[Rfam]
This 46-nucleotide RNA sequence from Urbifossiella limnaea belongs to the Rfam family "Acido-Lenti-1 RNA". It scores 49 bits against the family's covariance model.

RNA sequence: CCCGGGGUUUCCACCCCGGGCUAAGAACGGCCGCCCCUCCGGGGCU
Number, nucleotide and partner (000 for none) at each position: 001c020002c019003c018004g017005g016006g015007g014008u013009u000010u000011c000012c000013a008014c007015c006016c005017c004018g003019g002020g001021c000022u000023a000024a000025g000026a000027a000028c000029g000030g000031c000032c000033g045034c044035c043036c042037c041038u000039c000040c000041g037042g036043g035044g034045c033046u000